Shown here is a 125-nucleotide RNA sequence from Anoxybacter fermentans, a member of the family "FMN riboswitch aptamer (RFN element)". It scores 131 bits against the family's covariance model. The source organism's lineage runs through Bacteria, Bacillati, Clostridia, Halanaerobiales and Anoxybacter. The base pairs follow the family's consensus structure, which is taken from published work. Rfam links the family to the GO term FMN binding.
[Rfam]
RNA sequence: AUCUAUCUUCGGGGCAGGGUGAAAUUCCCGACCGGCGGUAAAGCCCGCGAGCCGCCUUAAAAUAGGUGGUUGAUCUGGUGAAAUUCCAGAGCCGACAGUUAAAGUCUGGAUGGGAGAAGAUAGAU
Numbered sequence: 001a002u003c004u005a006u007c008u009u010c011g012g013g014g015c016a017g018g019g020u021g022a023a024a025u026u027c028c029c030g031a032c033c034g035g036c037g038g039u040a041a042a043g044c045c046c047g048c049g050a051g052c053c054g055c056c057u058u059a060a061a062a063u064a065g066g067u068g069g070u071u072g073a074u075c076u077g078g079u080g081a082a083a084u085u086c087c088a089g090a091g092c093c094g095a096c097a098g099u100u101a102a103a104g105u106c107u108g109g110a111u112g113g114g115a116g117a118a119g120a121u122a123g124a125u
Base pairs, nucleotide, nucleotide: 003123004122005121006120007119008118009117010116017029018028019027031105032104033094034093035048036047037046038045043092044091051070052069053068074090075089076088077087078086096108097107098106